[Rfam]
RNA: mir-490 microRNA precursor family
Organism: Capra hircus
RNA sequence: UGGAAAGUUCAUUGUUCGACACCAUGGAUCUCCAGGUGGGUCACGUUUAGAGAUACACCAACCUGGAGGACUCCAUGCUGUUGAGCUGUUCACAA
Dot-bracket structure: ...............((((((.(((((((((((((((.(((...............))).)))))))))..)))))).))))))...........